A member of the RNA family "NiCo (Nickel/Cobalt) riboswitch aptamer" from Clostridium cellulovorans, 92 nucleotides long. It is one of the family's seed sequences. Clan: NiCo_riboswitches.
RNA sequence: ACAGUACAAACUGAGCAGGCGAUGGACUUUUAUAAAAGUUCGUGGGGCCGGGCCUUUUUUGGGCAACAGGAUUUAAUACCUGUGGGACAGUA
Numbered sequence: 001a002c003a004g005u006a007c008a009a010a011c012u013g014a015g016c017a018g019g020c021g022a023u024g025g026a027c028u029u030u031u032a033u034a035a036a037a038g039u040u041c042g043u044g045g046g047g048c049c050g051g052g053c054c055u056u057u058u059u060u061g062g063g064c065a066a067c068a069g070g071a072u073u074u075a076a077u078a079c080c081u082g083u084g085g086g087a088c089a090g091u092a
Stems, first nucleotide, its partner, number of pairs: 010091004016086001018049003022043006052064004066083005